[Rfam]
RNA sequence: UGGAUGGAGAGUUUGAUCCUGGCUCAGAACGAACGCUGGCGGCGUGCUUAACACAUGCAAGUCAGGGGGAAUCCUCCCUUCGGGGAGGUAGUACACCGGCGCACGGGUGAGUAACGCGUGAGUGACCUACCCAUUAGACCUGGAUAACCCGGCGAAAGUUGGGCUAAGACAGGAUGUGUUAAUACACUUCAUGGUGUAUUGAUAAAGGCAGGUUUCGGCUUGUGCUAAUGGAUGGGCUCGCGUCUGAUUAGCUAGUUGGUAAGGUAAAGGCUUACCAAGGCGACGAUCAUUAGGCGGCCUGAGAGGGUGGUCGCCCACACUGGAACUGAGACACGGUCCAGACUCCUACGGGAGGCAGCAGUGGGGAAUUUUGCGCAAUGGGCGAGAGCCUGACGCAGCGACGCCGCGUGGACGAGGAAGGCCUUCGGGUCGUAAAGUCCUUUUUUACGGGAAGAAAGUUAUUAACAGUAACUGGUUAAUAUUUGACGGUACCGUAAGAAUAAGCCCCGGCUAACUCCGUGCCAGCAGCCGCGGUAAUACGGAGGGGGCGAGCGUUGUUCGGAAUUACUG
Dot-bracket structure: ........(((((.......))))).((((.((((((.(((((((((....(((.(((..(((..((..(..((((((....))))))...)...)))))......(((......((((((((..((...(((((((.((((.....((((((....))))))......)))).....((((((((((....)))))))))).....(((((......))))).)))))))..)))))))))).((....(((..((((((((.......)))))))))))......))...((((((((....))))...))))))).(((((............))))).((((....))))...)))))).).....(.(((...(((((....))))).)))).)).))))))..((((......((((....)))).....))))....((((((...(.....((((((..........)))))).....)....))))))......(((((......(((((.....((....)).......)))))))))).))))))))))..........